[Rfam]
RNA sequence: CGGACAGGAUUGUGCUAAACAACCUGUACCUGCAAGAUAGAAUUAAGUAUUAGUUGUCUGCCUUGAUCUUUUAGACAGGGACAGAAGG
Numbered sequence: 001c002g003g004a005c006a007g008g009a010u011u012g013u014g015c016u017a018a019a020c021a022a023c024c025u026g027u028a029c030c031u032g033c034a035a036g037a038u039a040g041a042a043u044u045a046a047g048u049a050u051u052a053g054u055u056g057u058c059u060g061c062c063u064u065g066a067u068c069u070u071u072u073a074g075a076c077a078g079g080g081a082c083a084g085a086a087g088g
Stems, first nucleotide, its partner, number of pairs: 002030002004027005010022004058084003061080005067075003